The family of this 389-nucleotide part of an RNA from Nitrososphaera viennensis is "Archaeal large subunit ribosomal RNA". A search with the family's covariance model found it, with a score of 2750 bits.
RNA sequence: GGCAGUAACAGCAUAGCCGGGUGAGAAUCUCGGCGACCGCAAGGGCAAGGGUUUCCCGGCAAUGCGUCAUCAGCCGGGAGUUAGCCGGUCCUAAGAGCAACCUCAACAGAGUUGCCCGAAUGGGAAAUUGGUUAAUAUUCCAAUGCCAUGAGGCGUCGUUAUGACCUACCAUGUCGCUUCAGGAUAAGGCGAGCAGAACCGUCGUUCUGUCCAAGCUUUCGAGUUUGGGGGAGUGCCGUAAUGGCGAGAUCCCAGACGAGUGGUGAAUGGCCUGCCGCAAGGCGGGUUCGCUUGAUUCCAGGAGACAUUGAAAGCAUGGCAAGGGAGAUUGCUUCAUGACCGUACCGAGAACCGACACUGGUGCCCUGGAUGAGAAAUCUAAGGUCUUU
Numbered sequence: 001g002g003c004a005g006u007a008a009c010a011g012c013a014u015a016g017c018c019g020g021g022u023g024a025g026a027a028u029c030u031c032g033g034c035g036a037c038c039g040c041a042a043g044g045g046c047a048a049g050g051g052u053u054u055c056c057c058g059g060c061a062a063u064g065c066g067u068c069a070u071c072a073g074c075c076g077g078g079a080g081u082u083a084g085c086c087g088g089u090c091c092u093a094a095g096a097g098c099a100a101c102c103u104c105a106a107c108a109g110a111g112u113u114g115c116c117c118g119a120a121u122g123g124g125a126a127a128u129u130g131g132u133u134a135a136u137a138u139u140c141c142a143a144u145g146c147c148a149u150g151a152g153g154c155g156u157c158g159u160u161a162u163g164a165c166c167u168a169c170c171a172u173g174u175c176g177c178u179u180c181a182g183g184a185u186a187a188g189g190c191g192a193g194c195a196g197a198a199c200c201g202u203c204g205u206u207c208u209g210u211c212c213a214a215g216c217u218u219u220c221g222a223g224u225u226u227g228g229g230g231g232a233g234u235g236c237c238g239u240a241a242u243g244g245c246g247a248g249a250u251c252c253c254a255g256a257c258g259a260g261u262g263g264u265g266a267a268u269g270g271c272c273u274g275c276c277g278c279a280a281g282g283c284g285g286g287u288u289c290g291c292u293u294g295a296u297u298c299c300a301g302g303a304g305a306c307a308u309u310g311a312a313a314g315c316a317u318g319g320c321a322a323g324g325g326a327g328a329u330u331g332c333u334u335c336a337u338g339a340c341c342g343u344a345c346c347g348a349g350a351a352c353c354g355a356c357a358c359u360g361g362u363g364c365c366c367u368g369g370a371u372g373a374g375a376a377a378u379c380u381a382a383g384g385u386c387u388u389u
Stems, first nucleotide, its partner, number of pairs: 016034006035386004043366004049346002054079006063072002086342003090123002095117001097115004102109002127144005147338008170318003177304004182299003187293005193210005215264003225255006235245003276281001352361002367381004

The family's consensus secondary structure is taken from published work.